[Rfam]
RNA sequence: CGAAGAGUAAGUAUAUCACGUUAAGUGUAGAAGAAUGGGAUGUAGUCUUCUAAAGAAAAAAUUUUUUUUGCGAUGAUAUAUUGCUUCCGCUUUG
Numbered sequence: 001c002g003a004a005g006a007g008u009a010a011g012u013a014u015a016u017c018a019c020g021u022u023a024a025g026u027g028u029a030g031a032a033g034a035a036u037g038g039g040a041u042g043u044a045g046u047c048u049u050c051u052a053a054a055g056a057a058a059a060a061a062u063u064u065u066u067u068u069u070g071c072g073a074u075g076a077u078a079u080a081u082u083g084c085u086u087c088c089g090c091u092u093u094g
Stems, first nucleotide, its partner, number of pairs: 001094005010082009019072003026053001028052007038088003042084001058069004

THF (Tetrahydrofolate) riboswitch aptamer: a 94-nucleotide RNA from Peptoniphilus sp. oral taxon 386.